Overview
A member of the RNA family "FMN riboswitch aptamer (RFN element)" from endosymbiont 'TC1' of Trimyema compressum, 118 nucleotides long. Pairs were carried over by alignment from the consensus structure, which is taken from published work.

RNA sequence: AUAUUUCUUCAGGGGUAGGUGAAAUUCCUUACCGGCGGUAAAGCCCGCGAGCAACAUAGGUUGUUGAUCUGGUGUAAAUCCAGAGCCGACAGUAGAGUCUGGAUGAGAGAAGAGAUUG
Numbered sequence: 001a002u003a004u005u006u007c008u009u010c011a012g013g014g015g016u017a018g019g020u021g022a023a024a025u026u027c028c029u030u031a032c033c034g035g036c037g038g039u040a041a042a043g044c045c046c047g048c049g050a051g052c053a054a055c056a057u058a059g060g061u062u063g064u065u066g067a068u069c070u071g072g073u074g075u076a077a078a079u080c081c082a083g084a085g086c087c088g089a090c091a092g093u094a095g096a097g098u099c100u101g102g103a104u105g106a107g108a109g110a111a112g113a114g115a116u117u118g
Stems, first nucleotide, its partner, number of pairs: 003116008017029003031098002033088002035048004043086002051064003068084005090101003